DUF805 RNA: a 69-nucleotide sequence from Hymenobacter sedentarius. It is annotated as a cis-regulatory element. Lineage of the source: Bacteria > Pseudomonadati > Bacteroidota > Cytophagales > Hymenobacter. It scores 68 bits against the family's covariance model. The family is grouped with related families in Rfam's "DUF805 clan".
RNA sequence: AGCCAGUGGAGCCCAGACCCCACUCAAAAAAACGGGGCGUCGCCGAAAAGCCUCACGAGUAGGAACGUU
Dot-bracket structure: .....((((..........))))............(((....[[.....))).........]]......